[Rfam]
RNA sequence: GGAUGUGAGGGCGAUCUGGCUGAGACAUCUGUCACCCCAUUGAUCGCAGGGUUGAUUCAGCUGAUCUGGCUGGCUAGGCGGGUGUCCCCUUCCUCCCUCACCGCUCCACGUGCGUCCCUCUCGAAGCUGCGCGCUCGGUCGAAGAGGACGACCUUCCCCGAUAGAGGAGGACCUUUCUUCGGUCAAGGGUAUACCAGUAGCUGCGCUCCCCUGCUAGAACCUCCAAACAAGCUCUCAAGGCACAUAAUUGUUUAUAGCAGCAUAGUUCACAAUAACCAAGUUUU
Numbered sequence: 001g002g003a004u005g006u007g008a009g010g011g012c013g014a015u016c017u018g019g020c021u022g023a024g025a026c027a028u029c030u031g032u033c034a035c036c037c038c039a040u041u042g043a044u045c046g047c048a049g050g051g052u053u054g055a056u057u058c059a060g061c062u063g064a065u066c067u068g069g070c071u072g073g074c075u076a077g078g079c080g081g082g083u084g085u086c087c088c089c090u091u092c093c094u095c096c097c098u099c100a101c102c103g104c105u106c107c108a109c110g111u112g113c114g115u116c117c118c119u120c121u122c123g124a125a126g127c128u129g130c131g132c133g134c135u136c137g138g139u140c141g142a143a144g145a146g147g148a149c150g151a152c153c154u155u156c157c158c159c160g161a162u163a164g165a166g167g168a169g170g171a172c173c174u175u176u177c178u179u180c181g182g183u184c185a186a187g188g189g190u191a192u193a194c195c196a197g198u199a200g201c202u203g204c205g206c207u208c209c210c211c212u213g214c215u216a217g218a219a220c221c222u223c224c225a226a227a228c229a230a231g232c233u234c235u236c237a238a239g240g241c242a243c244a245u246a247a248u249u250g251u252u253u254a255u256a257g258c259a260g261c262a263u264a265g266u267u268c269a270c271a272a273u274a275a276c277c278a279a280g281u282u283u284u
Stems, first nucleotide, its partner, number of pairs: 001107003005101007013092002018089002024086010035073002037069003042066004046061002115170002117167004121138004126134002139161003146157003200266003206260002209257001212254002222247001
RNA: 7SK RNA